[Rfam]
RNA: SAM riboswitch aptamer (S box leader)
Organism: Clostridium sp. cel8
RNA sequence: CACUUAUCAAGAGUGGUGGAGGGACUGGCCCUGUGAAACCCGGCAACCAGUAUUUUAUACAUUGGUGCUAACUCCUGCAGCAGAAGCUGAAAGAUGAGAA
Numbered sequence: 001c002a003c004u005u006a007u008c009a010a011g012a013g014u015g016g017u018g019g020a021g022g023g024a025c026u027g028g029c030c031c032u033g034u035g036a037a038a039c040c041c042g043g044c045a046a047c048c049a050g051u052a053u054u055u056u057a058u059a060c061a062u063u064g065g066u067g068c069u070a071a072c073u074c075c076u077g078c079a080g081c082a083g084a085a086g087c088u089g090a091a092a093g094a095u096g097a098g099a100a
Base pairs, nucleotide, nucleotide: 003098004097005096006095007094008093013041015040016039017038021031022030023029025077027075028074042069043068044067045066047065048064050060051059052058073092078089079088080087081086